[Rfam]
RNA: Group II catalytic intron D1-D4-7
RNA sequence: CCUGCUGUUCCGUCAGCAGUAGCCUACGGGCGCGUGCAUUACAAGCAAUUGUUUUGUACGAAGCCGCCCGGACAAAGUAGCCCGCCGCAAGGAAAGCGGAAGCCGUGAGGCAGACGCAAUUAUCGCCAGCAUCAGGCGGUUAGGGAG
Numbered sequence: 001c002c003u004g005c006u007g008u009u010c011c012g013u014c015a016g017c018a019g020u021a022g023c024c025u026a027c028g029g030g031c032g033c034g035u036g037c038a039u040u041a042c043a044a045g046c047a048a049u050u051g052u053u054u055u056g057u058a059c060g061a062a063g064c065c066g067c068c069c070g071g072a073c074a075a076a077g078u079a080g081c082c083c084g085c086c087g088c089a090a091g092g093a094a095a096g097c098g099g100a101a102g103c104c105g106u107g108a109g110g111c112a113g114a115c116g117c118a119a120u121u122a123u124c125g126c127c128a129g130c131a132u133c134a135g136g137c138g139g140u141u142a143g144g145g146a147g
Stems, first nucleotide, its partner, number of pairs: 002019006028069005033060006041052004085092002096117003103110002122140006
Dot-bracket structure: .((((((......))))))........(((((((((((..((((....))))..))))))....)))))...............((....))...(((....((....))....)))....((((((.......)))))).......